[Rfam]
RNA: mir-9230 microRNA precursor family
Organism: Myotis myotis
RNA sequence: CUGACUGCUCUGAGCUCCAGUUCCGGGUGAGUCUCUGGGGACCCAGGCUCAUACGGGGAGAAACUGGACUGUCUGGCAGCAGGCAGA
Dot-bracket structure: ((..((((((((.(((((((((((..(((((..(((((....))))))))))....)))...))))))..)).))).)))))..)).